[Rfam]
RNA sequence: GCUGGGAUGUGAUGUAAACAAAAGGCCGAAUUAUAGCGCCCCCGCCUGGCAGUGUGUUCUCUGAGCGGUGGCGCAGUGACAAAAACUCGACCGAAGCGUGAACUGAUCCCAGC
Dot-bracket structure: (((((((......((.........(........).(((....((.(..(..((.(..((.......))..).))((.........)))).).)...)))..))...)))))))
A member of the RNA family "Small nucleolar RNA SNORD89" from Muraenolepis orangiensis, 113 nucleotides long. Lineage of the source: Eukaryota > Bilateria > Gnathostomata > Muraenolepididae > Muraenolepis. Rfam's curators write: snoRNA HBII-289 belongs to the family of C/D snoRNAs. Rfam links the family to the GO terms RNA processing and nucleolus. A reference for the family is Huttenhofer et al. (2001), "RNomics: an experimental approach that identifies 201 candidates for novel, small, non-messenger RNAs in mouse", EMBO J. By type it is a C/D-box small nucleolar RNA.